[Rfam]
RNA: FMN riboswitch aptamer (RFN element)
Organism: Paenibacillus sp. JCM 10914
RNA sequence: AAUAUCCUUCGGGGUUGGGUGAAAUUCCCUACCGGCGGUGAUGAUGCAGCUAUCGAGCCAUACAACGGCAGAUUGUUGUGUCUUAGUCCGUGACCCGGAUAUGAGUCAUGUAUUCAUAGACGGUGGACCUGGUGCAAAUCCGGGACCGACAGUAUAGUCUGGAUGGGAGAAGGAGUGA
Numbered sequence: 001a002a003u004a005u006c007c008u009u010c011g012g013g014g015u016u017g018g019g020u021g022a023a024a025u026u027c028c029c030u031a032c033c034g035g036c037g038g039u040g041a042u043g044a045u046g047c048a049g050c051u052a053u054c055g056a057g058c059c060a061u062a063c064a065a066c067g068g069c070a071g072a073u074u075g076u077u078g079u080g081u082c083u084u085a086g087u088c089c090g091u092g093a094c095c096c097g098g099a100u101a102u103g104a105g106u107c108a109u110g111u112a113u114u115c116a117u118a119g120a121c122g123g124u125g126g127a128c129c130u131g132g133u134g135c136a137a138a139u140c141c142g143g144g145a146c147c148g149a150c151a152g153u154a155u156a157g158u159c160u161g162g163a164u165g166g167g168a169g170a171a172g173g174a175g176u177g178a
Base pairs, nucleotide, nucleotide: 005174006173007172008171009170010169017029018028019027031158032157033148034147035091036090037089038088095123096122128144129143130142131141132140150161151160152159